[Rfam]
RNA sequence: UUGGCGGGCCGGGCCCCUCUGACGAUCCUCAUCGAUCGUGAUGUCGGACCGCAUCG
Numbered sequence: 001u002u003g004g005c006g007g008g009c010c011g012g013g014c015c016c017c018u019c020u021g022a023c024g025a026u027c028c029u030c031a032u033c034g035a036u037c038g039u040g041a042u043g044u045c046g047g048a049c050c051g052c053a054u055c056g
Base pairs, nucleotide, nucleotide: 006050007049009047010046011045012044022039023038024037025036026035027034
terC RNA: a 56-nucleotide RNA sequence from Sphingobium wenxiniae.
By type it is a cis-regulatory element.
The organism belongs to Sphingobium, within Bacteria.